[Rfam]
RNA: Repression of heat shock gene expression (ROSE) element
Organism: Ventosimonas gracilis
RNA sequence: UUGCAGAUGCCGAAAUCGGGUCUGUUAAUUUUUCGCUGAAUAUCAGGAGAAUAGCCAUGAGU
Numbered sequence: 001u002u003g004c005a006g007a008u009g010c011c012g013a014a015a016u017c018g019g020g021u022c023u024g025u026u027a028a029u030u031u032u033u034c035g036c037u038g039a040a041u042a043u044c045a046g047g048a049g050a051a052u053a054g055c056c057a058u059g060a061g062u
Base pairs, nucleotide, nucleotide: 001027003025004024005023006022007021008020010019011018012017031051032050033048034047036046037045038044039043